[Rfam]
RNA: MIR474 microRNA precursor family
RNA sequence: UCAAUGCUAUUAGGUCUAGUUUUUCUGCUAGACCCAAUGCUAUUGGGUCUAUUUUUGCAGCCAGAUCCAAAACUAUUUUGGAUCUGACUUAGCAUUGUUA
Numbered sequence: 001u002c003a004a005u006g007c008u009a010u011u012a013g014g015u016c017u018a019g020u021u022u023u024u025c026u027g028c029u030a031g032a033c034c035c036a037a038u039g040c041u042a043u044u045g046g047g048u049c050u051a052u053u054u055u056u057g058c059a060g061c062c063a064g065a066u067c068c069a070a071a072a073c074u075a076u077u078u079u080g081g082a083u084c085u086g087a088c089u090u091a092g093c094a095u096u097g098u099u100a
Base pairs, nucleotide, nucleotide: 002097004095005094006093007092008091009090011086012085013084014083015082016081017080018079019078020075023072024071026069027068030050031049032048033047034046035045036044037043038042054064055063057061